Record summary:
The family of this 62-nucleotide RNA sequence is "pemK RNA".

[Rfam]
RNA sequence: ACAAUGAUACUUCCGUAAUUCGCGGCUCGCUAUAAAGAAGGCGUGUGGUGAAACUCCAAUGG
Numbered sequence: 001a002c003a004a005u006g007a008u009a010c011u012u013c014c015g016u017a018a019u020u021c022g023c024g025g026c027u028c029g030c031u032a033u034a035a036a037g038a039a040g041g042c043g044u045g046u047g048g049u050g051a052a053a054c055u056c057c058a059a060u061g062g
Stems, first nucleotide, its partner, number of pairs: 012059001013025004026045001028043004046058003
Dot-bracket structure: ...........(((((.....))))(.((((........)))).)(((.......))))...

The family's RNA type in Rfam is cis-regulatory element.